[Rfam]
Rfam assigns this 163-nucleotide sequence from Castor canadensis to the family "U1 spliceosomal RNA". It scores 114 bits against the family's covariance model. By type it is a spliceosomal small nuclear RNA. The organism belongs to Castor, within Eukaryota. The base pairs follow the family's consensus structure, which is taken from published work. From the family's description: U1 is a small nuclear RNA (snRNA) component of the spliceosome (involved in pre-mRNA splicing). On this family, see Katsamba et al., J Biol Chem 2001: "Two functionally distinct steps mediate high affinity binding of U1A protein to U1 hairpin II RNA".

RNA sequence: AUACUUAUCUGGCAGGGGAGAUACCAAGAUCAGAAAGGUGGUUUUCCCAGGCAAGACUUAUCCAUCGCACUCCAGAUGAGCUAACCCCUGAAAUUUCCCCAAAUGUGGGAAACUCGACUGCAUAAUUUGUGAUAAUAGGGGGCUGCAUUUAUGCUCUCCCCUA
Numbered sequence: 001a002u003a004c005u006u007a008u009c010u011g012g013c014a015g016g017g018g019a020g021a022u023a024c025c026a027a028g029a030u031c032a033g034a035a036a037g038g039u040g041g042u043u044u045u046c047c048c049a050g051g052c053a054a055g056a057c058u059u060a061u062c063c064a065u066c067g068c069a070c071u072c073c074a075g076a077u078g079a080g081c082u083a084a085c086c087c088c089u090g091a092a093a094u095u096u097c098c099c100c101a102a103a104u105g106u107g108g109g110a111a112a113c114u115c116g117a118c119u120g121c122a123u124a125a126u127u128u129g130u131g132a133u134a135a136u137a138g139g140g141g142g143c144u145g146c147a148u149u150u151a152u153g154c155u156c157u158c159c160c161c162u163a
Stems, first nucleotide, its partner, number of pairs: 012121004016048006023042004050087002055082001057080001059078004093114001094112003098108002137162006145154003